[Rfam]
RNA sequence: UCGAAGUUCCAUCUACAAAUGGAUAAGACCUUGGUCUUAGUAUAAAUGUAGGUGAGUUUUUGAUUGGAAAGGAAAGAAGCAAUAACCAACACUCUUGAUAGAAUAAGAAACUGGUUAUUGUUUCUUU
Numbered sequence: 001u002c003g004a005a006g007u008u009c010c011a012u013c014u015a016c017a018a019a020u021g022g023a024u025a026a027g028a029c030c031u032u033g034g035u036c037u038u039a040g041u042a043u044a045a046a047u048g049u050a051g052g053u054g055a056g057u058u059u060u061u062g063a064u065u066g067g068a069a070a071g072g073a074a075a076g077a078a079g080c081a082a083u084a085a086c087c088a089a090c091a092c093u094c095u096u097g098a099u100a101g102a103a104u105a106a107g108a109a110a111c112u113g114g115u116u117a118u119u120g121u122u123u124c125u126u127u
Stems, first nucleotide, its partner, number of pairs: 008023005073127013087113002093108004
The record is a 127-nucleotide RNA sequence from Eucalyptus grandis, which matches "Plastid-psbA-1 3UTR RNA" in Rfam.
By type it is a cis-regulatory element.
Plastid psbA-1 is a non-coding RNA (ncRNA) present in plastids. It was identified in inverted repeat sequences in the 3 prime untranslate region (3UTR) of photosystem II quinone-binding protein (psbA).
On this family, see Richter et al., Plant Commun 2023: "Retrograde signaling in plants: A critical review focusing on the GUN pathway and beyond".